[Rfam]
RNA: SAM riboswitch aptamer (S box leader)
Organism: Clostridium intestinale
RNA sequence: CACUUAUCGAGAGAGGUGGAGGGGCUGGCCCUAUGAAACCCAGCAACCCAUAAGUUUUCAUUUAGACUUACAGGGUGCUAAUUCCUGCAACUAUUUAGUUGGAAGAUAAGGA
Numbered sequence: 001c002a003c004u005u006a007u008c009g010a011g012a013g014a015g016g017u018g019g020a021g022g023g024g025c026u027g028g029c030c031c032u033a034u035g036a037a038a039c040c041c042a043g044c045a046a047c048c049c050a051u052a053a054g055u056u057u058u059c060a061u062u063u064a065g066a067c068u069u070a071c072a073g074g075g076u077g078c079u080a081a082u083u084c085c086u087g088c089a090a091c092u093a094u095u096u097a098g099u100u101g102g103a104a105g106a107u108a109a110g111g112a
Stems, first nucleotide, its partner, number of pairs: 003110006013041001015040003021031003025087001027085002042079004047075002051070006083104001088101005